This 381-nucleotide part of an RNA from Povalibacter uvarum belongs to the Rfam family "Bacterial large subunit ribosomal RNA". Its family is annotated with ribosome and structural constituent of ribosome in the Gene Ontology. Taxonomically the source falls in Povalibacter (Bacteria, Pseudomonadota, Steroidobacterales, Steroidobacteraceae).
RNA sequence: GUUAAUGCGGGUGAAAAACCCGCACGCCGAAAGCCCAAGGUUUCCUGCUCAACGUUAAUCGGAGCAGGGUGAGCCGGUUCCUAAGACGAGACCGAAAGGUGUAGCCGAUGGAAAACAGGUCAAUAUUCCUGUGCCCGGUGUGACUGCGAUGGGGUGACGGAGAAGGCUAGUUCAGCAGGUAUUGGUUGCCUGUUUAAGCAUGUAGGGGGAGUUGCCAGGUAAAUCCGGUGACUCAUUCAACCCUGAGGUGUGAUGACGAGGUCCCACGUGGACCGAAGUGAAUAACGCCCGGCUCCCAGGAAAAGCCUCUAAGCUUCAGGUCACAUUGGACCGUACCGAAAACCGACACUGGUGGGCGAGCAGAUAAUCUGCCAAGGCGCU
Numbered sequence: 001g002u003u004a005a006u007g008c009g010g011g012u013g014a015a016a017a018a019c020c021c022g023c024a025c026g027c028c029g030a031a032a033g034c035c036c037a038a039g040g041u042u043u044c045c046u047g048c049u050c051a052a053c054g055u056u057a058a059u060c061g062g063a064g065c066a067g068g069g070u071g072a073g074c075c076g077g078u079u080c081c082u083a084a085g086a087c088g089a090g091a092c093c094g095a096a097a098g099g100u101g102u103a104g105c106c107g108a109u110g111g112a113a114a115a116c117a118g119g120u121c122a123a124u125a126u127u128c129c130u131g132u133g134c135c136c137g138g139u140g141u142g143a144c145u146g147c148g149a150u151g152g153g154g155u156g157a158c159g160g161a162g163a164a165g166g167c168u169a170g171u172u173c174a175g176c177a178g179g180u181a182u183u184g185g186u187u188g189c190c191u192g193u194u195u196a197a198g199c200a201u202g203u204a205g206g207g208g209g210a211g212u213u214g215c216c217a218g219g220u221a222a223a224u225c226c227g228g229u230g231a232c233u234c235a236u237u238c239a240a241c242c243c244u245g246a247g248g249u250g251u252g253a254u255g256a257c258g259a260g261g262u263c264c265c266a267c268g269u270g271g272a273c274c275g276a277a278g279u280g281a282a283u284a285a286c287g288c289c290c291g292g293c294u295c296c297c298a299g300g301a302a303a304a305g306c307c308u309c310u311a312a313g314c315u316u317c318a319g320g321u322c323a324c325a326u327u328g329g330a331c332c333g334u335a336c337c338g339a340a341a342a343c344c345g346a347c348a349c350u351g352g353u354g355g356g357c358g359a360g361c362a363g364a365u366a367a368u369c370u371g372c373c374a375a376g377g378c379g380c381u
Base pairs, nucleotide, nucleotide: 006024007023008022009021010020011019025379026378027377028376033357034356035355036354039337040336044068045067046066047065048064049063053061054060075333076332077331078330080111081110085106087104089102091100092099093098115132116131117130118129119128135329136328137327138326139325140324141323142322143321144320145319146314147313151309152308153307154306155305159296160295161294162293165289166288167287170283171282172281173280174279175193176192177191178190179189180188194256195255198251199250200249201248205244206243207242210233211232212231213230214229215228216227218226219225260274261273262272263271264270343352344351360372361371362370